The record is an 82-nucleotide sequence from Legionella pneumophila, which matches "Legionella RNA 69" in Rfam. It scores 75 bits against the family's covariance model. It is annotated as a small RNA. On this family, see Weissenmayer et al., PLoS One 2011: "Sequencing illustrates the transcriptional response of Legionella pneumophila during infection and identifies seventy novel small non-coding RNAs". Identified by strand specific sequencing of the transcriptional response during broth growth and during infection inside the host. Infection specific expression. The source organism's lineage runs through Bacteria, Pseudomonadati, Legionellaceae, Legionella and Legionella pneumophila subsp. pneumophila.
[Rfam]
RNA sequence: AGACAAUGCUUAUGCAUCUCCUCAGCCUGAGUGUUCCCUGGGUAUCGACUGGUUGAUAUAUCAUCUUUAUCCAUAACUCACG
Numbered sequence: 001a002g003a004c005a006a007u008g009c010u011u012a013u014g015c016a017u018c019u020c021c022u023c024a025g026c027c028u029g030a031g032u033g034u035u036c037c038c039u040g041g042g043u044a045u046c047g048a049c050u051g052g053u054u055g056a057u058a059u060a061u062c063a064u065c066u067u068u069a070u071c072c073a074u075a076a077c078u079c080a081c082g
Stems, first nucleotide, its partner, number of pairs: 002020002006017004023055005029049001033045002036042002